[Rfam]
RNA sequence: GAAAUCAUCGGGCAAACCUGUCUAAAGACAGCGACGCAAAGCUAGAGGGGCUAAUCCGCUUUGAAGAGAGCGGUAUGCCAGCCAGCCGUGGAA
Numbered sequence: 001g002a003a004a005u006c007a008u009c010g011g012g013c014a015a016a017c018c019u020g021u022c023u024a025a026a027g028a029c030a031g032c033g034a035c036g037c038a039a040a041g042c043u044a045g046a047g048g049g050g051c052u053a054a055u056c057c058g059c060u061u062u063g064a065a066g067a068g069a070g071c072g073g074u075a076u077g078c079c080a081g082c083c084a085g086c087c088g089u090g091g092a093a
Stems, first nucleotide, its partner, number of pairs: 012037002018031005041086003047083002049079003056073007

c-di-GMP-I riboswitch aptamer: a 93-nucleotide sequence from Lawsonibacter faecis. NCBI's taxonomy places the organism under Bacteria, Bacillati, Bacillota, Eubacteriales, Lawsonibacter. Clan: c-di-GMP_I riboswitch clan. It scores 57 bits against the family's covariance model. GEMM was predicted in a large-scale screen for bacterial structured RNA regulatory elements.